[Rfam]
RNA sequence: CAAUGCAAUAGAGGUUGCGGCAAUUACAAAGUUAAUAGGAGCACACGGAUGUGAUGAUAAUUAACCAUAAGAAUUGCCGUCGAAAUAGAUUUGCUUUUCGUGAAGCCAAUCUGUUGGGAUGCAGAAAAAGAUUCUGCAGACUGUCCUGGUUAUCGUUUCCAAGGGGCGCUAUAUGAUUU
Numbered sequence: 001c002a003a004u005g006c007a008a009u010a011g012a013g014g015u016u017g018c019g020g021c022a023a024u025u026a027c028a029a030a031g032u033u034a035a036u037a038g039g040a041g042c043a044c045a046c047g048g049a050u051g052u053g054a055u056g057a058u059a060a061u062u063a064a065c066c067a068u069a070a071g072a073a074u075u076g077c078c079g080u081c082g083a084a085a086u087a088g089a090u091u092u093g094c095u096u097u098u099c100g101u102g103a104a105g106c107c108a109a110u111c112u113g114u115u116g117g118g119a120u121g122c123a124g125a126a127a128a129a130g131a132u133u134c135u136g137c138a139g140a141c142u143g144u145c146c147u148g149g150u151u152a153u154c155g156u157u158u159c160c161a162a163g164g165g166g167c168g169c170u171a172u173a174u175g176a177u178u179u
Stems, first nucleotide, its partner, number of pairs: 008172004017080009031065006038058001084115008093106003116142002120138007144164002147161003
Dot-bracket structure: .......((((.....(((((((((.....((((((.(...................).))))))......)))))))))...((((((((.(((........))).))))))))((..(((((((.....)))))))..)).((.(((.........))).))....)))).......

Record summary: Shown here is a 179-nucleotide sequence from Lactobacillus acetotolerans, a member of the family "Lysine riboswitch aptamer". Lineage of the source: Bacteria > Bacillati > Bacillota > Lactobacillales > Lactobacillus.